[Rfam]
A member of the RNA family "Xanthine riboswitch aptamer (NMT1 RNA)" from Acinetobacter ursingii, 60 nucleotides long. A reference for the family is Yu and Breaker (2020), "A bacterial riboswitch class senses xanthine and uric acid to regulate genes associated with purine oxidation", RNA.

RNA sequence: GAUUAGAGUAUAAGCUGUCAACAUAUUGAUUUAUUCAUUAUGUGGGUCAUUGCUCUAAGC
Numbered sequence: 001g002a003u004u005a006g007a008g009u010a011u012a013a014g015c016u017g018u019c020a021a022c023a024u025a026u027u028g029a030u031u032u033a034u035u036c037a038u039u040a041u042g043u044g045g046g047u048c049a050u051u052g053c054u055c056u057a058a059g060c
Stems, first nucleotide, its partner, number of pairs: 005056006015045001019046001021043005027037003